[Rfam]
RNA sequence: AGGCAGCACCUUUACAACGGAUCGUCCGGCACGUUCCUGCCGGUGAAGGAAGGCAAA
Numbered sequence: 001a002g003g004c005a006g007c008a009c010c011u012u013u014a015c016a017a018c019g020g021a022u023c024g025u026c027c028g029g030c031a032c033g034u035u036c037c038u039g040c041c042g043g044u045g046a047a048g049g050a051a052g053g054c055a056a057a
Stems, first nucleotide, its partner, number of pairs: 009049006026043006
Dot-bracket structure: ........((((((...........((((((......))))))))))))........
About this RNA
The record is a 57-nucleotide sequence from Terrabacter sp. MAHUQ-38, which matches "msiK RNA" in Rfam. The organism belongs to Terrabacter, within Bacteria. The family has 120 seed sequences and 1,374 matches in Rfam 15.1. Rfam classes the family as a cis-regulatory element. It scores 58 bits against the family's covariance model.